[Rfam]
Description:
This 116-nucleotide RNA from Cnephaeus nilssonii belongs to the Rfam family "U4atac minor spliceosomal RNA".
RNA sequence: ACCAUUCUUUUCUUGGGGUUGCACUACUAUCCAAUAAGUGUGUAGUGAGGAUGGUAUUGCUAACAUCUAAGCAACACCAGAGCUCUCUGCUUUACUUUGGUGUGAUUUUUGGAAAA
Numbered sequence: 001a002c003c004a005u006u007c008u009u010u011u012c013u014u015g016g017g018g019u020u021g022c023a024c025u026a027c028u029a030u031c032c033a034a035u036a037a038g039u040g041u042g043u044a045g046u047g048a049g050g051a052u053g054g055u056a057u058u059g060c061u062a063a064c065a066u067c068u069a070a071g072c073a074a075c076a077c078c079a080g081a082g083c084u085c086u087c088u089g090c091u092u093u094a095c096u097u098u099g100g101u102g103u104g105a106u107u108u109u110u111g112g113a114a115a116a
Stems, first nucleotide, its partner, number of pairs: 006018004021060003026055007038046002074103006080092004